[Rfam]
Background: This 94-nucleotide RNA sequence from Geotalea uraniireducens belongs to the Rfam family "Selenocysteine transfer RNA". Lineage of the source: Bacteria > Pseudomonadati > Desulfuromonadia > Geotalea > Geotalea uraniireducens. Rfam 15.1 lists 4,211 matches to the family in 3,344 species.
RNA sequence: GGAAGCACGUCGGUCGCUGGUGGGCCGCCCGGUCUUCAAAACCGGUGGGGGGGAUGAGAAAUCUCCCCGGUGGGUUCGAUUCCCAUGUGCUUCC
Numbered sequence: 001g002g003a004a005g006c007a008c009g010u011c012g013g014u015c016g017c018u019g020g021u022g023g024g025c026c027g028c029c030c031g032g033u034c035u036u037c038a039a040a041a042c043c044g045g046u047g048g049g050g051g052g053g054a055u056g057a058g059a060a061a062u063c064u065c066c067c068c069g070g071u072g073g074g075u076u077c078g079a080u081u082c083c084c085a086u087g088u089g090c091u092u093c094c
Stems, first nucleotide, its partner, number of pairs: 001094009011027005017022001028047001029045005049068005071085004